[Rfam]
RNA sequence: UGACAGCGAUGAUGCGGAAGGUUGCUGACACACCCGGCCCCUUUGCCAUGGGAGGGUGAGGAAAUUUCCGCGGAGUAUGUCUAUUUUAUAAAAUGGGCGA
Number, nucleotide and partner (000 for none) at each position: 001u000002g000003a000004c000005a000006g000007c000008g000009a000010u000011g000012a000013u000014g071015c070016g069017g000018a000019a067020g066021g065022u000023u000024g000025c060026u059027g000028a057029c056030a000031c000032a000033c000034c000035c000036g000037g000038c000039c000040c000041c000042u000043u000044u000045g000046c000047c000048a000049u000050g000051g000052g000053a000054g000055g000056g029057u028058g000059a026060g025061g000062a000063a000064a000065u021066u020067u019068c000069c016070g015071c014072g000073g000074a000075g000076u000077a000078u099079g098080u097081c096082u095083a094084u093085u092086u000087u000088a000089u000090a000091a000092a085093a084094u083095g082096g081097g080098c079099g078100a000